RNA sequence: GGUCCGCUGAGGUGGGAACGGCCGCCCCACGCCCCCGUAGCGGGGAGAGUAGCCGCAAGGUGAAAGAGAUUCCGGAGUGGCACCCGGACUCGGACA
Numbered sequence: 001g002g003u004c005c006g007c008u009g010a011g012g013u014g015g016g017a018a019c020g021g022c023c024g025c026c027c028c029a030c031g032c033c034c035c036c037g038u039a040g041c042g043g044g045g046a047g048a049g050u051a052g053c054c055g056c057a058a059g060g061u062g063a064a065a066g067a068g069a070u071u072c073c074g075g076a077g078u079g080g081c082a083c084c085c086g087g088a089c090u091c092g093g094a095c096a
Stems, first nucleotide, its partner, number of pairs: 002095005009089001012030005021081004032066001033045004071088005
skipping-rope RNA: a 96-nucleotide sequence from Rhodospirillum centenum. Rfam's curators put it in the seed alignment. Taxonomically the source falls in Rhodospirillum centenum (Bacteria, Alphaproteobacteria, Rhodospirillales, Rhodospirillaceae). The family's RNA type in Rfam is small RNA.